[Rfam]
Nucleotides: 106
Base pairs, nucleotide, nucleotide: 006103007102008101009100010099011098013096014095015094016093018091019090020089021088022087023086024085025084026083027082028081030079031078032077
Number, partner (000 for none) and nucleotide at each position: 001000u002000g003000a004000a005000g006103a007102a008101a009100c010099a011098u012000c013096a014095u015094u016093g017000a018091g019090u020089g021088c022087a023086g024085c025084g026083u027082u028081g029000a030079u031078g032077a033000a034000a035000g036000u037000u038000c039000g040000u041000a042000u043000u044000c045000g046000u047000u048000c049000u050000g051000a052000a053000u054000c055000u056000u057000c058000a059000u060000u061000a062000g063000g064000g065000c066000a067000u068000c069000g070000g071000a072000a073000c074000a075000u076000u077032u078031c079030a080000u081028c082027a083026a084025c085024g086023c087022u088021g089020c090019a091018c092000c093016c094015a095014a096013u097000u098011a099010u100009g101008u102007u103006u104000c105000u106000a
A member of the RNA family "MIR397 microRNA precursor family" from Malus domestica, 106 nucleotides long. Taxonomically the source falls in Malus (Eukaryota, Spermatophyta, Gunneridae, Pentapetalae).